[Rfam]
RNA sequence: GGAGAAUUGAGGGGGGCUGCUCCUAGUACGAGAGGACCGGAGUGGACACACCGCUGGUUUUCGGGUUGUCAUGCCAAUGGCAUUGCCCGGUAGCUAAGUGUGGAAAAGAUAAGUGCUGAAAGCAUAUAAGCACGAAACUUGCCUCAAGAUGAGUUCUCCCUGACCCCUUGAGGGUCCUAAAGGGACGUUGAAGACGACGACGUUGAUAGGCCGGAUGUGUAAGCGCAGUGAUGCGUUGAGCUAACCGGUACUAAUGACCCGUGAG
Numbered sequence: 001g002g003a004g005a006a007u008u009g010a011g012g013g014g015g016g017c018u019g020c021u022c023c024u025a026g027u028a029c030g031a032g033a034g035g036a037c038c039g040g041a042g043u044g045g046a047c048a049c050a051c052c053g054c055u056g057g058u059u060u061u062c063g064g065g066u067u068g069u070c071a072u073g074c075c076a077a078u079g080g081c082a083u084u085g086c087c088c089g090g091u092a093g094c095u096a097a098g099u100g101u102g103g104a105a106a107a108g109a110u111a112a113g114u115g116c117u118g119a120a121a122g123c124a125u126a127u128a129a130g131c132a133c134g135a136a137a138c139u140u141g142c143c144u145c146a147a148g149a150u151g152a153g154u155u156c157u158c159c160c161u162g163a164c165c166c167c168u169u170g171a172g173g174g175u176c177c178u179a180a181a182g183g184g185a186c187g188u189u190g191a192a193g194a195c196g197a198c199g200a201c202g203u204u205g206a207u208a209g210g211c212c213g214g215a216u217g218u219g220u221a222a223g224c225g226c227a228g229u230g231a232u233g234c235g236u237u238g239a240g241c242u243a244a245c246c247g248g249u250a251c252u253a254a255u256g257a258c259c260c261g262u263g264a265g
Stems, first nucleotide, its partner, number of pairs: 001159008011145004017045007047102005055096003062089005067082006106140003113133005162176005179262001182260003186202005207253003210249005217241001223236005
A member of the RNA family "Bacterial large subunit ribosomal RNA" from Pantoea sp. Nvir, 265 nucleotides of a longer RNA.